[Rfam]
RNA sequence: UGGUGUUUUUCCUCAAUGACACGUUUUCUCCCGGAUUGCUGGCAAAUGAAAGCGCAACCGGGAAUUCCGUGUCAGCCAAGAAUAACGCCA
Numbered sequence: 001u002g003g004u005g006u007u008u009u010u011c012c013u014c015a016a017u018g019a020c021a022c023g024u025u026u027u028c029u030c031c032c033g034g035a036u037u038g039c040u041g042g043c044a045a046a047u048g049a050a051a052g053c054g055c056a057a058c059c060g061g062g063a064a065u066u067c068c069g070u071g072u073c074a075g076c077c078a079a080g081a082a083u084a085a086c087g088c089c090a
Base pairs, nucleotide, nucleotide: 001090002089003088004087005086006085007084009082010081011080017074018073019072020071021070022069023068029063030062031061032060033059034058036057037056038055039054042053043052
This 90-nucleotide RNA from Oryzias latipes belongs to the Rfam family "mir-731 microRNA precursor family". Rfam 15.1 lists 91 matches to the family in 80 species. Rfam links the family to the GO terms miRNA-mediated post-transcriptional gene silencing and RISC complex.